The family of this 31-nucleotide RNA sequence from Anas platyrhynchos is "Iron response element II". By type it is a cis-regulatory element. Gene Ontology term of the family: response to iron ion. The family's consensus secondary structure is taken from published work. From the family's description: IRE, TFRC, SLC40A1, SDHB, SLC11A2, CDC42BPA, ACO2, ALAS2_H.SAPIENS, CDC14A, EPAS1, ALAS2, qoxD, Hao1, NDUFS1, transferrin, Aconitate. On this family, see Koeller et al., Proc Natl Acad Sci U S A 1989: "A cytosolic protein binds to structural elements within the iron regulatory region of the transferrin receptor mRNA".

[Rfam]
RNA sequence: UUAACAUCAGCAUCAGCGUGUGCUAUGUUAA
Numbered sequence: 001u002u003a004a005c006a007u008c009a010g011c012a013u014c015a016g017c018g019u020g021u022g023c024u025a026u027g028u029u030a031a
Stems, first nucleotide, its partner, number of pairs: 001031007009024005014018001